[Rfam]
RNA sequence: GAGUCACAGGACGAAGUGGUUGGAUCAAGGUCUUACAAGCCUAAAGUACUUGUGGGCCAGGAUUCAGGAAAGUCCCCGAGCCUCAAUCCGUAGAAAUUACGGGCUCGGAAACGGGUUCUACUUCAAGCGUGGUAAUCAAUUCAUGUCAGAAAUAUCUGAGAUGAAGGGCUGAGACGUGUGUGGAGCCUUUGGUGCUGCCUGAAGUAUAUUGGCCGAUUACACAGAUAUCCACUUGGUCCUUAAUGGACUAACUGAACGGGGAUUACGAUUCUGUGACU
Numbered sequence: 001g002a003g004u005c006a007c008a009g010g011a012c013g014a015a016g017u018g019g020u021u022g023g024a025u026c027a028a029g030g031u032c033u034u035a036c037a038a039g040c041c042u043a044a045a046g047u048a049c050u051u052g053u054g055g056g057c058c059a060g061g062a063u064u065c066a067g068g069a070a071a072g073u074c075c076c077c078g079a080g081c082c083u084c085a086a087u088c089c090g091u092a093g094a095a096a097u098u099a100c101g102g103g104c105u106c107g108g109a110a111a112c113g114g115g116u117u118c119u120a121c122u123u124c125a126a127g128c129g130u131g132g133u134a135a136u137c138a139a140u141u142c143a144u145g146u147c148a149g150a151a152a153u154a155u156c157u158g159a160g161a162u163g164a165a166g167g168g169c170u171g172a173g174a175c176g177u178g179u180g181u182g183g184a185g186c187c188u189u190u191g192g193u194g195c196u197g198c199c200u201g202a203a204g205u206a207u208a209u210u211g212g213c214c215g216a217u218u219a220c221a222c223a224g225a226u227a228u229c230c231a232c233u234u235g236g237u238c239c240u241u242a243a244u245g246g247a248c249u250a251a252c253u254g255a256a257c258g259g260g261g262a263u264u265a266c267g268a269u270u271c272u273g274u275g276a277c278u
Stems, first nucleotide, its partner, number of pairs: 002278010014234006021066006070264002074261004089101004102117006119206003123202003127198002132195003143188001145186002174181002236248004
Annotation
Rfam assigns this 278-nucleotide RNA sequence from Aquilegia coerulea to the family "RNase MRP". From the family's description: RNase MRP is an enzymatically active ribonucleoprotein with two distinct roles in eukaryotes. In mitochondria it plays a direct role in the initiation of mitochondrial DNA replication. By type it is a ribozyme. The literature on the family includes a 2005 paper in Biochem Biophys Res Commun by Walker and Avis, "Secondary structure probing of the human RNase MRP RNA reveals the potential for MRP RNA subsets". It scores 75 bits against the family's covariance model. Pairs were carried over by alignment from the consensus structure, which is taken from published work. The organism belongs to Aquilegia, within Eukaryota.